A member of the RNA family "Small Cajal body specific RNA 21" from Cavia porcellus, 137 nucleotides long. Its family is annotated with Cajal body, RNA processing and nucleolus in the Gene Ontology. scaRNAs are a specific class of small nuclear RNAs which localise to the Cajal bodies and guide the modification of RNA polymerase II transcribed spliceosomal RNAs U1, U2, U4, U5 and U12. ACA68 (SCARNA21) is a member of the H/ACA class of snoRNAs that guide the sites of modification of uridines to pseudouridines. This snoRNA was identified by computational screening and its expression in mouse experimentally verified by Northern blot and primer extension analysis. ACA68 is proposed to guide the pseudouridylation of residue U19 in U12 snRNA. Rfam 15.1 lists 278 matches to the family in 138 species.
[Rfam]
RNA sequence: UGGCUCUGUUUCCUGGCAGGUGGACUUGGCUCCCUCCACCUUCCCUCAGUUGAGCCUAGAGUAGAGGGGCUGACUGUCCUGUGUGGGAGAGGUAUUUAAGAAAGGAGCCUUGCCCGGGCUGUCUCAGCCUCACAUUU
Numbered sequence: 001u002g003g004c005u006c007u008g009u010u011u012c013c014u015g016g017c018a019g020g021u022g023g024a025c026u027u028g029g030c031u032c033c034c035u036c037c038a039c040c041u042u043c044c045c046u047c048a049g050u051u052g053a054g055c056c057u058a059g060a061g062u063a064g065a066g067g068g069g070c071u072g073a074c075u076g077u078c079c080u081g082u083g084u085g086g087g088a089g090a091g092g093u094a095u096u097u098a099a100g101a102a103a104g105g106a107g108c109c110u111u112g113c114c115c116g117g118g119c120u121g122u123c124u125c126a127g128c129c130u131c132a133c134a135u136u137u
Base pairs, nucleotide, nucleotide: 002056003055004054005053006052015044016043018041019040020039021038022037023036024035066131067130068129069128070127072125073124078118079117080116085110086109087108

Notes: It is one of the family's seed sequences.